Rfam assigns this 81-nucleotide RNA from Gymnodraco acuticeps to the family "mir-363 microRNA precursor family". Rfam 15.1 lists 620 matches to the family in 594 species.
RNA sequence: GCUGUUUUCGGGUGGAUGACUUCACAAUUUCAAUACUCGAAACAAUUAAAGAAAUUGCACAGUAUCCAUCUGCAAGCCGCC
Numbered sequence: 001g002c003u004g005u006u007u008u009c010g011g012g013u014g015g016a017u018g019a020c021u022u023c024a025c026a027a028u029u030u031c032a033a034u035a036c037u038c039g040a041a042a043c044a045a046u047u048a049a050a051g052a053a054a055u056u057g058c059a060c061a062g063u064a065u066c067c068a069u070c071u072g073c074a075a076g077c078c079g080c081c
Stems, first nucleotide, its partner, number of pairs: 009072009019063002025057007
Rfam links the family to the GO terms miRNA-mediated post-transcriptional gene silencing and RISC complex. A search with the family's covariance model found it, with a score of 61 bits. On this family, see Linsen et al., BMC Genomics 2010: "Small RNA expression and strain specificity in the rat". NCBI's taxonomy places the organism under Eukaryota, Opisthokonta, Teleostomi, Actinopterygii, Gymnodraco.